[Rfam]
RNA sequence: UUGACAGAAGAGAGUGAGCACACAUGGUGCUUUCUUGCAUGAAAAAGGACUCCAUGCUUGAAGCUAUGUGUGCUCACUUCUCUACCUGUCAA
Numbered sequence: 001u002u003g004a005c006a007g008a009a010g011a012g013a014g015u016g017a018g019c020a021c022a023c024a025u026g027g028u029g030c031u032u033u034c035u036u037g038c039a040u041g042a043a044a045a046a047g048g049a050c051u052c053c054a055u056g057c058u059u060g061a062a063g064c065u066a067u068g069u070g071u072g073c074u075c076a077c078u079u080c081u082c083u084a085c086c087u088g089u090c091a092a
Stems, first nucleotide, its partner, number of pairs: 001092007010082003013078009023068003